RNA sequence: GAUUUUGAACAAUCUACUAAAUAACCAAGUGAAGAUAGGGUGACACCUUGCUUGGAUUGCAUACGUAAUUCUCGUUACGCUUCUUGUGAGAUAUUGCAAGAAGUAAGUAAUUCUCUUUCGGGUAAUCGAAGGAGGUCAUGAAGUGUAAGAAGAUUGAGAGUGUAUGUAGUAUAGAGGUUGUGCGUAAUUAGAUCAUUAUCAGACGGUGGCAGUGACAAUAGACGCUCUCAGUGAGAGAAUAACCUAGAGAGGCCUUAUGUAGCAGUAAGAACCAAACUAGAAACGCUAUAAUAAACUGUUUUGCACUUGAGGUUGAGACAUCAGCCAAUAACACUAAAGAUAAGUACAAGUAGCCCAAAGUGUGCAGAUAAAACAUUUGGAUAUGUUAUGCUUAAAAUAUAUUUCUGAAUGUCGGGUGAAAGUUGGACGUAACCAGUCGUGCCUAGUCAUUUAAUCACUACGGAAGUUAUAGGGUCGCUCCUUAUGGCUCAGACCGUGGUAGGCUAUCGGUCAAUAAGUUGCGUACAAUCGAAGUAGAGCGAAGGCUCAUUUAAUAGAUUGUUUAAAG
Numbered sequence: 001g002a003u004u005u006u007g008a009a010c011a012a013u014c015u016a017c018u019a020a021a022u023a024a025c026c027a028a029g030u031g032a033a034g035a036u037a038g039g040g041u042g043a044c045a046c047c048u049u050g051c052u053u054g055g056a057u058u059g060c061a062u063a064c065g066u067a068a069u070u071c072u073c074g075u076u077a078c079g080c081u082u083c084u085u086g087u088g089a090g091a092u093a094u095u096g097c098a099a100g101a102a103g104u105a106a107g108u109a110a111u112u113c114u115c116u117u118u119c120g121g122g123u124a125a126u127c128g129a130a131g132g133a134g135g136u137c138a139u140g141a142a143g144u145g146u147a148a149g150a151a152g153a154u155u156g157a158g159a160g161u162g163u164a165u166g167u168a169g170u171a172u173a174g175a176g177g178u179u180g181u182g183c184g185u186a187a188u189u190a191g192a193u194c195a196u197u198a199u200c201a202g203a204c205g206g207u208g209g210c211a212g213u214g215a216c217a218a219u220a221g222a223c224g225c226u227c228u229c230a231g232u233g234a235g236a237g238a239a240u241a242a243c244c245u246a247g248a249g250a251g252g253c254c255u256u257a258u259g260u261a262g263c264a265g266u267a268a269g270a271a272c273c274a275a276a277c278u279a280g281a282a283a284c285g286c287u288a289u290a291a292u293a294a295a296c297u298g299u300u301u302u303g304c305a306c307u308u309g310a311g312g313u314u315g316a317g318a319c320a321u322c323a324g325c326c327a328a329u330a331a332c333a334c335u336a337a338a339g340a341u342a343a344g345u346a347c348a349a350g351u352a353g354c355c356c357a358a359a360g361u362g363u364g365c366a367g368a369u370a371a372a373a374c375a376u377u378u379g380g381a382u383a384u385g386u387u388a389u390g391c392u393u394a395a396a397a398u399a400u401a402u403u404u405c406u407g408a409a410u411g412u413c414g415g416g417u418g419a420a421a422g423u424u425g426g427a428c429g430u431a432a433c434c435a436g437u438c439g440u441g442c443c444u445a446g447u448c449a450u451u452u453a454a455u456c457a458c459u460a461c462g463g464a465a466g467u468u469a470u471a472g473g474g475u476c477g478c479u480c481c482u483u484a485u486g487g488c489u490c491a492g493a494c495c496g497u498g499g500u501a502g503g504c505u506a507u508c509g510g511u512c513a514a515u516a517a518g519u520u521g522c523g524u525a526c527a528a529u530c531g532a533a534g535u536a537g538a539g540c541g542a543a544g545g546c547u548c549a550u551u552u553a554a555u556a557g558a559u560u561g562u563u564u565a566a567a568g
Base pairs, nucleotide, nucleotide: 008564009563012560015557018554020552021551025055026054027053028052029051037048038047039046058168059167060166061165062164063163074111075110076109077108078107080103081102082101084099085098086097087096088095089094112135113134114133115132116131117130118129119128120127121126137145138144139143177530179528187520189518194510196343197342198341199340205335206334207333208332209299210298211297212296213295225237226236227235228234244280245279246278247277251273252272254269255268256267260288261287262286263285302364303363304362305361306360312325313324314323315322316321347422353417354416355415356414358412404493405492406491407490426442444506445505446504456503459499463495466489468486469485470484471483472482473481474480537548538547539546540545
Shown here is a 568-nucleotide RNA, a member of the family "ROOL RNA". It is annotated as a small RNA. Rfam describes the family as follows. Firmicutes, Fusobacteria (1 example), Tenericutes (1 example). Pairs were carried over by alignment from the consensus structure, which is taken from published work.